[Rfam]
RNA: U1 spliceosomal RNA
Organism: Peromyscus maniculatus
RNA sequence: AUACUUUCCUGGCAGGGGAGAUACCAUGAUCCCAAAGGUGGUUUUCCCAGGGCGAGGCUUAUCCAUUGCACUCCUGAUGUGCUGACCCCUGCGAUUUCCCCAAAUGCGGGAAACUCAACUGCAUGAAUUGUGGUAGUGGGGUGUAGCAUGAAUCUUA
Numbered sequence: 001a002u003a004c005u006u007u008c009c010u011g012g013c014a015g016g017g018g019a020g021a022u023a024c025c026a027u028g029a030u031c032c033c034a035a036a037g038g039u040g041g042u043u044u045u046c047c048c049a050g051g052g053c054g055a056g057g058c059u060u061a062u063c064c065a066u067u068g069c070a071c072u073c074c075u076g077a078u079g080u081g082c083u084g085a086c087c088c089c090u091g092c093g094a095u096u097u098c099c100c101c102a103a104a105u106g107c108g109g110g111a112a113a114c115u116c117a118a119c120u121g122c123a124u125g126a127a128u129u130g131u132g133g134u135a136g137u138g139g140g141g142u143g144u145a146g147c148a149u150g151a152a153u154c155u156u157a
Stems, first nucleotide, its partner, number of pairs: 012122004016048006023042005049090004054086001056083003060079004093116002095113003099109002145156002148153001